[Rfam]
Notes
The family of this 133-nucleotide RNA sequence from Caenorhabditis japonica is "Caenorhabditis sRNA ceN93". The family's RNA type in Rfam is small RNA.
RNA sequence: UUUCCAUUUAGUAGUCCCGGACGAUUAAAAUCUUUACGUACGGUUUGGACAUAAUGGAGAGAUAAAUUUGCUCUUUUUUUGCAGCGAAGCUAAAUUAAAUUUUUGCUUUGUUAGCCCUAAGUGUAAUACAAUC
Numbered sequence: 001u002u003u004c005c006a007u008u009u010a011g012u013a014g015u016c017c018c019g020g021a022c023g024a025u026u027a028a029a030a031u032c033u034u035u036a037c038g039u040a041c042g043g044u045u046u047g048g049a050c051a052u053a054a055u056g057g058a059g060a061g062a063u064a065a066a067u068u069u070g071c072u073c074u075u076u077u078u079u080u081g082c083a084g085c086g087a088a089g090c091u092a093a094a095u096u097a098a099a100u101u102u103u104u105g106c107u108u109u110g111u112u113a114g115c116c117c118u119a120a121g122u123g124u125a126a127u128a129c130a131a132u133c
Stems, first nucleotide, its partner, number of pairs: 001060008011050002014046001017043003021039003026036003068126004073121003081115002083112008092104003
Overview: NCBI's taxonomy places the organism under Eukaryota, Nematoda, Chromadorea, Peloderinae, Caenorhabditis. Rfam 15.1 lists 10 matches to the family in 10 species. The base pairs follow the family's consensus structure, which was predicted with WAR.